[Rfam]
RNA sequence: CAGGAAAAACAUUUAAUCCCUCAUAUAUGCUAGAGAAUAUGGCUCUAGUGUCUCUACCCGGCACCGUAAAUACCGGACUAUGUGGGAAAGCAACUUCAGG
Numbered sequence: 001c002a003g004g005a006a007a008a009a010c011a012u013u014u015a016a017u018c019c020c021u022c023a024u025a026u027a028u029g030c031u032a033g034a035g036a037a038u039a040u041g042g043c044u045c046u047a048g049u050g051u052c053u054c055u056a057c058c059c060g061g062c063a064c065c066g067u068a069a070a071u072a073c074c075g076g077a078c079u080a081u082g083u084g085g086g087a088a089a090g091c092a093a094c095u096u097c098a099g100g
Stems, first nucleotide, its partner, number of pairs: 018086003022082004029049007058076004063071001
Purine riboswitch aptamer: a 100-nucleotide sequence from Solibacillus silvestris. Rfam's curators write: Riboswitches are metabolite binding domains within certain messenger RNAs that serve as precision sensors for their corresponding targets. A search with the family's covariance model found it, with a score of 80 bits.